[Rfam]
RNA sequence: AUCAUACGCCCGAUUGGGCGUUUCCUCCCUAGACUUGGGCCGUGCUAGUCACGGCCCCUUUUUUUUGGAAUG
Number, nucleotide and partner (000 for none) at each position: 001a000002u000003c000004a000005u000006a000007c000008g019009c018010c017011c016012g000013a000014u000015u000016g011017g010018g009019c008020g000021u000022u000023u000024c000025c000026u000027c000028c000029c000030u000031a000032g000033a000034c000035u000036u000037g057038g056039g055040c054041c053042g052043u051044g050045c000046u000047a000048g000049u000050c044051a043052c042053g041054g040055c039056c038057c037058c000059u000060u000061u000062u000063u000064u000065u000066u000067g000068g000069a000070a000071u000072g000

The record is a 72-nucleotide RNA sequence from Oceanomicrobium pacificus, which matches "Makes More Granules Regulator RNA (mmgR)" in Rfam. The organism belongs to Oceanomicrobium, within Bacteria. On this family, see Ceizel Borella et al., Microbiology 2018: "Expression of the small regulatory RNA gene mmgR is regulated negatively by AniA and positively by NtrC in Sinorhizobium meliloti 2011". The family has 87 seed sequences and 1,791 matches in Rfam 15.1. Rfam's curators write: SuhB later renamed mmgR (makes more granules regulator) was a putative non-coding RNA found multiple times in the Agrobacterium tumefaciens genome and related alpha-proteobacteria.